[Rfam]
RNA sequence: UCAUGAACUUUGUACCGCACACAUCACUUAGAUGAGUUGUAGAAAGUCAU
Numbered sequence: 001u002c003a004u005g006a007a008c009u010u011u012g013u014a015c016c017g018c019a020c021a022c023a024u025c026a027c028u029u030a031g032a033u034g035a036g037u038u039g040u041a042g043a044a045a046g047u048c049a050u
Stems, first nucleotide, its partner, number of pairs: 019037002022034004

A member of the RNA family "Plastid-ndhJ 3UTR RNA" from Nyssa sinensis, 50 nucleotides long.
It is annotated as a cis-regulatory element.
Rfam describes the family as follows. Plastid ndhJ is a non-coding RNA (ncRNA) present in plastids. It was identified as a short stem-loop motif in the 3 prime untranslate region (3UTR) of ndhJ gene.